[Rfam]
Nucleotides: 110
Base pairs, nucleotide, nucleotide: 006107007106008105009104010103011102013100014099015098016097017096018095019094020093021092022091023090024089025088026087027086028085030083031082032081
Number, partner (000 for none) and nucleotide at each position: 001000c002000a003000a004000a005000a006107a007106a008105a009104c010103a011102u012000c013100a014099u015098u016097g017096a018095g019094u020093g021092c022091a023090g024089c025088g026087u027086u028085g029000a030083u031082g032081a033000a034000c035000u036000g037000a038000a039000c040000u041000c042000c043000a044000a045000u046000u047000c048000c049000c050000a051000c052000a053000u054000u055000u056000u057000u058000u059000g060000a061000u062000g063000u064000g065000u066000u067000g068000a069000u070000g071000a072000g073000c074000g075000g076000u077000g078000a079000u080000u081032u082031c083030a084000c085028c086027a087026g088025c089024g090023c091022u092021g093020u094019a095018c096017u097016c098015g099014a100013u101000c102011a103010u104009g105008u106007u107006u108000u109000u110000g
Description
This 110-nucleotide sequence from Tetracentron sinense belongs to the Rfam family "MIR397 microRNA precursor family". Taxonomically the source falls in Tetracentron (Eukaryota, Spermatophyta, Magnoliopsida, Mesangiospermae). A reference for the family is Wu et al. (2009), "Rice MicroRNA effector complexes and targets", Plant Cell. Its family is annotated with RISC complex and miRNA-mediated post-transcriptional gene silencing in the Gene Ontology.